[Rfam]
RNA sequence: CAAUUUAAUAAAGCGCCUGGACUAUUUUCCGGACGACGAAAGGGAAAUAGUUGACGAGGAGGAGGUUUAUCGAGCAAGUUCGGCGGAUACCUCCCGGUUGCACACAUCUCAACCGUCACGUUUUUAUUUGAAAACAAAGAGGUGACUCUUUGCACAAGAAUAAAAACAAGAUGAUU
Dot-bracket structure: ...................((((((((.(.............).))))))))........(((((....((((......))))......)))))((((((.........)))))).....(((((((.......(((((((....))))))).......)))))))..........